[Rfam]
Source information: This 158-nucleotide RNA from Verrucomicrobium sp. GAS474 belongs to the Rfam family "SAM riboswitch aptamer (S box leader)". A search with the family's covariance model found it, with a score of 65 bits. Rfam describes the family as follows. The SAM riboswitch is found upstream of a number of genes which code for proteins involved in methionine or cysteine biosynthesis in Gram-positive bacteria. NCBI's taxonomy places the organism under Bacteria, Pseudomonadati, Verrucomicrobiia, Verrucomicrobiaceae, Verrucomicrobium. Pairs were carried over by alignment from the consensus structure, which is taken from published work.

RNA sequence: AUCUUAUCGAGAGCGACGGAGGGACUGGCCUUACGAUGUCGCGGCAACCGGGAAGUACGAUUCGGGCAAAAGCCCACUCCCUUCCGGCAGGUGCUAAACCCAGCAUUGGAGAGGGACGCCCCUUAAAAACGGCGUCUCCGCCCGGUGAAGGAUAAGAG
Dot-bracket structure: .(((((((....(((((...(((.[[[[)))......)))))((((.((........................................))))))...(]]]]((((((................................))))))..)))))))).